This 207-nucleotide RNA from Natronincola peptidivorans belongs to the Rfam family "raiA RNA". The source organism's lineage runs through Bacteria, Bacillati, Bacillota, Natronincolaceae and Natronincola. Pairs were carried over by alignment from the consensus structure, which is taken from published work.
[Rfam]
RNA sequence: UGAUGGAAGGUCUGUGGUUGAAAGUCCAUGCCAGUCGCAGGCAAAGGGACCCACGUAAGAUGGCAAAAAAAUUGAUCAUUGAGCAUGGUGCGGCUUAGAUGUAAGACCUGCCGGAGGAUAAACCGAGAGGAGGAGUAGUGAAGGCGAUCCCUGAGCGAAACUUCCAGCAGGCGAGUGUGGGGGCAAAGACCAGGUCAGCUUCCUAUA
Numbered sequence: 001u002g003a004u005g006g007a008a009g010g011u012c013u014g015u016g017g018u019u020g021a022a023a024g025u026c027c028a029u030g031c032c033a034g035u036c037g038c039a040g041g042c043a044a045a046g047g048g049a050c051c052c053a054c055g056u057a058a059g060a061u062g063g064c065a066a067a068a069a070a071a072u073u074g075a076u077c078a079u080u081g082a083g084c085a086u087g088g089u090g091c092g093g094c095u096u097a098g099a100u101g102u103a104a105g106a107c108c109u110g111c112c113g114g115a116g117g118a119u120a121a122a123c124c125g126a127g128a129g130g131a132g133g134a135g136u137a138g139u140g141a142a143g144g145c146g147a148u149c150c151c152u153g154a155g156c157g158a159a160a161c162u163u164c165c166a167g168c169a170g171g172c173g174a175g176u177g178u179g180g181g182g183g184c185a186a187a188g189a190c191c192a193g194g195u196c197a198g199c200u201u202c203c204u205a206u207a
Base pairs, nucleotide, nucleotide: 001207002206005203006202007201008200009199012198013197014196015192016191017190018189019188028178029177030176031041033095034094035093036092037091038090039089050088051087058080059079062076064074086185107171108170109169110168111167112125113124114123129164130163131162132161138156139155142152143151144150
Dot-bracket structure: ((..(((((..((((((((........((([.(((((((.]........((......((..(.(.........).)..)).....[)))))))))...........((((((((........)))...((((.....((..(((.....)))..))....))))..)))))....)))......]..)))))...))))))))..))